[Rfam]
RNA sequence: CAGUCUUUGCCAACACUCUGGCCUGUACCGGCACGAAUGUUUUCAUUUGAGCAAAAUCUCUACGGUACAGGCCUAUUUUGGUGCAAAGAAGAUCAAUUGACCAACUACUCACCGCAGUAUCCUUGGUUAUGCAUGAGGAUUCCUUUCUUUUCGAAGGAAGACAUGCUCAUAUAUAUCCUAUGGGUAUGGCGGUCCAUCUUGAAGGUCUACAU
Number, nucleotide and partner (000 for none) at each position: 001c000002a000003g000004u000005c000006u000007u086008u085009g084010c000011c000012a000013a000014c000015a000016c000017u000018c000019u000020g073021g072022c071023c070024u069025g000026u067027a066028c065029c064030g000031g052032c051033a000034c049035g000036a000037a000038u000039g000040u000041u000042u000043u000044c000045a000046u000047u000048u000049g034050a000051g032052c031053a000054a000055a000056a000057u000058c000059u000060c000061u000062a000063c000064g029065g028066u027067a026068c000069a024070g023071g022072c021073c020074u000075a000076u000077u000078u000079u000080g000081g000082u000083g000084c009085a008086a007087a000088g000089a000090a000091g000092a000093u000094c000095a000096a000097u000098u000099g207100a206101c205102c204103a000104a000105c000106u000107a000108c000109u000110c000111a000112c192113c191114g190115c189116a000117g187118u186119a185120u000121c184122c183123u182124u000125g000126g000127u000128u000129a000130u000131g000132c000133a000134u000135g000136a000137g000138g000139a000140u000141u000142c000143c000144u000145u000146u000147c000148u000149u000150u000151u000152c000153g000154a000155a000156g000157g000158a000159a000160g000161a000162c000163a000164u000165g000166c000167u000168c000169a000170u000171a000172u000173a000174u000175a000176u000177c000178c000179u000180a000181u000182g123183g122184g121185u119186a118187u117188g000189g115190c114191g113192g112193u000194c000195c000196a000197u000198c000199u000200u000201g000202a000203a000204g102205g101206u100207c099208u000209a000210c000211a000212u000
RNA: Small nucleolar RNA snR80